[Rfam]
RNA sequence: GUCGGCUAUGGGGACAUGGCCCCGAAGACCUAUCUGGGGAUGUUUGUUGGGGCCCUCUGUGCCCUGGCAGGGGUGCUCACUAUAGCUCUACCAGUGCCGGUCAUCGUGUCCAAU
Number, nucleotide and partner (000 for none) at each position: 001g114002u113003c000004g111005g110006c000007u108008a107009u106010g105011g104012g000013g102014a101015c100016a000017u000018g097019g000020c000021c094022c000023c000024g000025a000026a000027g000028a000029c000030c000031u000032a000033u000034c000035u000036g000037g077038g076039g000040a074041u000042g000043u000044u000045u000046g000047u000048u000049g063050g062051g000052g000053c000054c000055c000056u000057c000058u000059g000060u000061g000062c050063c049064c000065u000066g000067g000068c000069a000070g000071g000072g000073g000074u040075g000076c038077u037078c000079a000080c000081u000082a000083u000084a000085g000086c000087u000088c000089u000090a000091c000092c000093a000094g021095u000096g000097c018098c000099g000100g015101u014102c013103a000104u011105c010106g009107u008108g007109u000110c005111c004112a000113a002114u001
The record is a 114-nucleotide sequence from Pieris macdunnoughi, which matches "Potassium channel RNA editing signal" in Rfam. A search with the family's covariance model found it, with a score of 96 bits. Rfam describes the family as follows. This family represents a group of sequences related to the human potassium channel Kv1.1 hairpin element which directs the efficient modification of an adenosine to inosine by an adenosine deaminase acting on RNA (ADAR). The family's consensus secondary structure is taken from published work. Rfam classes the family as a cis-regulatory element.